[Rfam]
RNA sequence: GGCCACCUUAGUAGUCAUUGUUCCAUAGGGGCAGGCGGACGGGGGGCUUACACAUAGCGGGUCCAAAGACAAAAACCUAGGGAUCCGCACGCUAAACGGAAGACAGAAA
Numbered sequence: 001g002g003c004c005a006c007c008u009u010a011g012u013a014g015u016c017a018u019u020g021u022u023c024c025a026u027a028g029g030g031g032c033a034g035g036c037g038g039a040c041g042g043g044g045g046g047c048u049u050a051c052a053c054a055u056a057g058c059g060g061g062u063c064c065a066a067a068g069a070c071a072a073a074a075a076c077c078u079a080g081g082g083a084u085c086c087g088c089a090c091g092c093u094a095a096a097c098g099g100a101a102g103a104c105a106g107a108a109a
Stems, first nucleotide, its partner, number of pairs: 001048004006043003057088007